[Rfam]
RNA sequence: GUUGCUUCUUUCUGGUGAACUCUCUUUAUUAUCAAGAGUGAGAGAUGUUCAAGUUUCCCGAAGCAUAGAUUAAAAUAUUAUAUAUUUGCCAGUUUUAAACAGCUCGGUGUAUAUCACUAUGUUGCAUCGUGCUACCUGUCUGCUGGUAUAUUU
Numbered sequence: 001g002u003u004g005c006u007u008c009u010u011u012c013u014g015g016u017g018a019a020c021u022c023u024c025u026u027u028a029u030u031a032u033c034a035a036g037a038g039u040g041a042g043a044g045a046u047g048u049u050c051a052a053g054u055u056u057c058c059c060g061a062a063g064c065a066u067a068g069a070u071u072a073a074a075a076u077a078u079u080a081u082a083u084a085u086u087u088g089c090c091a092g093u094u095u096u097a098a099a100c101a102g103c104u105c106g107g108u109g110u111a112u113a114u115c116a117c118u119a120u121g122u123u124g125c126a127u128c129g130u131g132c133u134a135c136c137u138g139u140c141u142g143c144u145g146g147u148a149u150a151u152u153u
Base pairs, nucleotide, nucleotide: 003065004064005063006062007061008060016051017050018049019048020047021045022044023043024042025041088147089146090145091144092143093142101133102132103131105129106128107127108126109125

Shown here is a 153-nucleotide RNA sequence from Nyssa sinensis, a member of the family "small nucleolar RNA snoR137". Its family is annotated with nucleolus and RNA processing in the Gene Ontology. The source organism's lineage runs through Eukaryota, Tracheophyta, Spermatophyta, eudicotyledons and Nyssa. For this family Rfam cites "Mining small RNA sequencing data: a new approach to identify small nucleolar RNAs in Arabidopsis" (Chen and Wu, Nucleic Acids Res, 2009).